[Rfam]
RNA: Manganese Mn2+ riboswitch aptamer (yybP-ykoY)
Organism: Acinetobacter sp. ANC 4558
RNA sequence: CACUACUUCAUUGGGGAGUAGCCGCUGUUCUAUAUGAACAGGUGAUGAUCAACAUAUUUGCUUUAAAACAAGCAUGGUCAUCAUAGCAAAGAACCAAAUGAGCUUUCUCUAAGCUUUCUUUUGUUGGCAAGACCUUUGAUU
Numbered sequence: 001c002a003c004u005a006c007u008u009c010a011u012u013g014g015g016g017a018g019u020a021g022c023c024g025c026u027g028u029u030c031u032a033u034a035u036g037a038a039c040a041g042g043u044g045a046u047g048a049u050c051a052a053c054a055u056a057u058u059u060g061c062u063u064u065a066a067a068a069c070a071a072g073c074a075u076g077g078u079c080a081u082c083a084u085a086g087c088a089a090a091g092a093a094c095c096a097a098a099u100g101a102g103c104u105u106u107c108u109c110u111a112a113g114c115u116u117u118c119u120u121u122u123g124u125u126g127g128c129a130a131g132a133c134c135u136u137u138g139a140u141u
Stems, first nucleotide, its partner, number of pairs: 026040003042084010059074005085140001087138005
Dot-bracket structure: .........................(((.........))).((((((((((.......(((((......)))))))))))))))(.(((((..........................................))))).).